[Rfam]
Rfam assigns this 105-nucleotide sequence from Tepidicella xavieri to the family "Glycine riboswitch aptamer". About the family: This family represents the bacterial glycine riboswitch. NCBI's taxonomy places the organism under Bacteria, Pseudomonadati, Pseudomonadota, Betaproteobacteria, Tepidicella. A search with the family's covariance model found it, with a score of 56 bits.
RNA sequence: UCGUCACCCCCUGGAGAGAGGCCGCCCGGCGAGGCGGUCCACCGAAGGAGCAAGCGCCGCAUCGCCGGGGCGAAUCUCUCAGGUAAAGCGGACAGGCGGGCAGUU
Numbered sequence: 001u002c003g004u005c006a007c008c009c010c011c012u013g014g015a016g017a018g019a020g021g022c023c024g025c026c027c028g029g030c031g032a033g034g035c036g037g038u039c040c041a042c043c044g045a046a047g048g049a050g051c052a053a054g055c056g057c058c059g060c061a062u063c064g065c066c067g068g069g070g071c072g073a074a075u076c077u078c079u080c081a082g083g084u085a086a087a088g089c090g091g092a093c094a095g096g097c098g099g100g101c102a103g104u105u
Stems, first nucleotide, its partner, number of pairs: 007099002010096004020039007041084003044080002048078003054071002
Dot-bracket structure: ......((.((((......(((((((......))))))).(((((..(((...((..............))....))))).)))........)))).))......